[Rfam]
RNA sequence: CCAUUUUUAGGCCGUGCUAUGUGACAAUAUGUAUUUAAAUUGUAUUUAUCAUAUUGCACAUCUCCCGGCCUACAAGUGU
Numbered sequence: 001c002c003a004u005u006u007u008u009a010g011g012c013c014g015u016g017c018u019a020u021g022u023g024a025c026a027a028u029a030u031g032u033a034u035u036u037a038a039a040u041u042g043u044a045u046u047u048a049u050c051a052u053a054u055u056g057c058a059c060a061u062c063u064c065c066c067g068g069c070c071u072a073c074a075a076g077u078g079u
Base pairs, nucleotide, nucleotide: 002078003077004076005075006074010070011069013067014066016064020060021059023057025056026055027054028053029052030051031050